This 324-nucleotide RNA from Daphnia galeata belongs to the Rfam family "Nuclear RNase P". Its Rfam clan is "RNaseP clan".
RNA sequence: GCUUACGACAAUCUCGCAUAUGGGGGUUACAUGCAAAGUACUAGUUACUCAUUAAAACCCUCGGGAAGGUCUGAGAAAAAGCCGUUCUCUUAUUCGUAGAGUUCCAUGUUCUAGCCGGACAACCUUCUUGCGAAGGUGCAGGGGAAUAGAAAGAUUAUCGAUUGGAAUGUUAUUUGCCCAUAAUACCCUUCGAUGGGCUAGGCGUCAGCUUCCAAAUACGAUUGGAACAGCCUCUGUGGCUUGCUUUUUGAGUAUAAUCUGCGAGUUGUGGUUAGCGUUAUUAUAGCUACUGCAAAACUCAAUUCAGACUAAUCUGUCGAAAGU
Numbered sequence: 001g002c003u004u005a006c007g008a009c010a011a012u013c014u015c016g017c018a019u020a021u022g023g024g025g026g027u028u029a030c031a032u033g034c035a036a037a038g039u040a041c042u043a044g045u046u047a048c049u050c051a052u053u054a055a056a057a058c059c060c061u062c063g064g065g066a067a068g069g070u071c072u073g074a075g076a077a078a079a080a081g082c083c084g085u086u087c088u089c090u091u092a093u094u095c096g097u098a099g100a101g102u103u104c105c106a107u108g109u110u111c112u113a114g115c116c117g118g119a120c121a122a123c124c125u126u127c128u129u130g131c132g133a134a135g136g137u138g139c140a141g142g143g144g145a146a147u148a149g150a151a152a153g154a155u156u157a158u159c160g161a162u163u164g165g166a167a168u169g170u171u172a173u174u175u176g177c178c179c180a181u182a183a184u185a186c187c188c189u190u191c192g193a194u195g196g197g198c199u200a201g202g203c204g205u206c207a208g209c210u211u212c213c214a215a216a217u218a219c220g221a222u223u224g225g226a227a228c229a230g231c232c233u234c235u236g237u238g239g240c241u242u243g244c245u246u247u248u249u250g251a252g253u254a255u256a257a258u259c260u261g262c263g264a265g266u267u268g269u270g271g272u273u274a275g276c277g278u279u280a281u282u283a284u285a286g287c288u289a290c291u292g293c294a295a296a297a298c299u300c301a302a303u304u305c306a307g308a309c310u311a312a313u314c315u316g317u318c319g320a321a322a323g324u
Stems, first nucleotide, its partner, number of pairs: 001324004008317003013265006022062005037049004071307005080241004107121005122137006138237007158221003266295007

The base pairs follow the family's consensus structure, which is taken from published work. Rfam classes the family as a ribozyme.